Annotation
The family of this 81-nucleotide RNA sequence from Fukomys damarensis is "Y RNA". The base pairs follow the family's consensus structure, which is taken from published work. Rfam classes the family as a non-coding RNA gene. From the family's description: Y RNAs are components of the Ro ribonucleoprotein particle (Ro RNP), in association with Ro60 and La proteins. The Y RNAs and Ro60 and La proteins are well conserved, but the function of the Ro RNP is not known. In humans the RNA component can be one of four small RNAs -- hY1, hY3, hY4 and hY5.
[Rfam]
Nucleotides: 081
Base pairs, nucleotide, nucleotide: 001074002073003072004071005070006069008067010066011065014062015061016057017056018055019054020053021052026042028040030038031037
Number, partner (000 for none) and nucleotide at each position: 001074a002073g003072u004071u005070g006069g007000u008067c009000c010066g011065a012000a013000g014062g015061u016057u017056g018055u019054g020053g021052g022000u023000u024000g025000u026042u027000g028040u029000u030038a031037a032000a033000c034000u035000g036000a037031u038030u039000a040028a041000a042026a043000u044000u045000g046000u047000c048000u049000c050000c051000c052021c053020c054019c055018a056017c057016a058000c059000u060000c061015g062014u063000a064000c065011u066010u067008g068000c069006c070005u071004a072003a073002c074001u075000g076000u077000g078000u079000u080000u081000u